[Rfam]
Annotation
The family of this 161-nucleotide RNA from Tistlia consotensis is "6S / SsrS RNA".

RNA sequence: GACGGGCUGCGGGGUGCGUCAGGUCGCGUCGAUCCCUGGGGCCAAUACGAACCUCUAGGGAGCUGUCCCUGCCGGGGCCCUGGUCCCGGCACUACGGCGCCCACCUGUCUCGGACAGGCCACAGAGGAUGAUCAUAGACCAACGGCCUUCGCGGCUCCCCU
Number, nucleotide and partner (000 for none) at each position: 001g000002a000003c000004g157005g156006g155007c154008u153009g152010c151011g150012g148013g147014g146015u145016g000017c144018g143019u142020c000021a000022g000023g000024u000025c000026g000027c000028g000029u000030c000031g000032a000033u128034c127035c126036c124037u000038g122039g000040g120041g119042c118043c117044a000045a000046u000047a000048c000049g000050a000051a000052c000053c000054u000055c000056u000057a000058g102059g101060g100061a000062g098063c097064u096065g095066u094067c000068c000069c000070u091071g090072c089073c088074g087075g086076g085077g000078c000079c000080c000081u000082g000083g000084u000085c076086c075087c074088g073089g072090c071091a070092c000093u000094a066095c065096g064097g063098c062099g000100c060101c059102c058103a000104c000105c000106u000107g000108u000109c000110u000111c000112g000113g000114a000115c000116a000117g043118g042119c041120c040121a000122c038123a000124g036125a000126g035127g034128a033129u000130g000131a000132u000133c000134a000135u000136a000137g000138a000139c000140c000141a000142a019143c018144g017145g015146c014147c013148u012149u000150c011151g010152c009153g008154g007155c006156u005157c004158c000159c000160c000161u000

Rfam describes the family as follows. E. coli 6S RNA was the first non coding RNA to be sequenced, but its function was unknown until recently. It consists of 184 nucleotides that fold into an extended hairpin structure with a large single-stranded internal bulge. The 6S RNA specifically associates with RNA polymerase holoenzyme containing the sigma70 specificity factor. A search with the family's covariance model found it, with a score of 66 bits.